[Rfam]
RNA sequence: UCCCUCCAGAUCCCUUUCCCAUCAGAUCUGAAUACUGAUCUCGUGGUCAAAAAAGGAGGAAAAGCAAAAUUCUAACUGGCCUGGGGCUCACUGUGGGGCACGAUCCUGCUCUGAGAGAGGCCAGUGGGCAGACAGUC
Numbered sequence: 001u002c003c004c005u006c007c008a009g010a011u012c013c014c015u016u017u018c019c020c021a022u023c024a025g026a027u028c029u030g031a032a033u034a035c036u037g038a039u040c041u042c043g044u045g046g047u048c049a050a051a052a053a054a055g056g057a058g059g060a061a062a063a064g065c066a067a068a069a070u071u072c073u074a075a076c077u078g079g080c081c082u083g084g085g086g087c088u089c090a091c092u093g094u095g096g097g098g099c100a101c102g103a104u105c106c107u108g109c110u111c112u113g114a115g116a117g118a119g120g121c122c123a124g125u126g127g128g129c130a131g132a133c134a135g136u137c
Base pairs, nucleotide, nucleotide: 003059004058005057006056007055019046020045021044023043025040026039027038028037076124077123078122079121080120081119082118087115088114089113